About this RNA
Shown here is a 70-nucleotide RNA from Neodiprion lecontei, a member of the family "mir-965 microRNA precursor family". The organism belongs to Neodiprion, within Eukaryota. On this family, see Huang et al., Bioorg Khim 2012: "The regulation of silkworm fibroin L chain production by miRNA-965 and miRNA-1926 in insect cells". The family has 16 seed sequences and 224 matches in Rfam 15.1. Its family is annotated with miRNA-mediated post-transcriptional gene silencing and RISC complex in the Gene Ontology. The family's consensus secondary structure was predicted with RNAalifold.

RNA sequence: CCCUGAAGGGGAAAGGUUAUAGCGAUUAUGAGGUUUGAAACCAUAAGCGUAUAGCUUUUCCCCAUUAGUG
Numbered sequence: 001c002c003c004u005g006a007a008g009g010g011g012a013a014a015g016g017u018u019a020u021a022g023c024g025a026u027u028a029u030g031a032g033g034u035u036u037g038a039a040a041c042c043a044u045a046a047g048c049g050u051a052u053a054g055c056u057u058u059u060c061c062c063c064a065u066u067a068g069u070g
Stems, first nucleotide, its partner, number of pairs: 003068004009062003013058002017054005026046005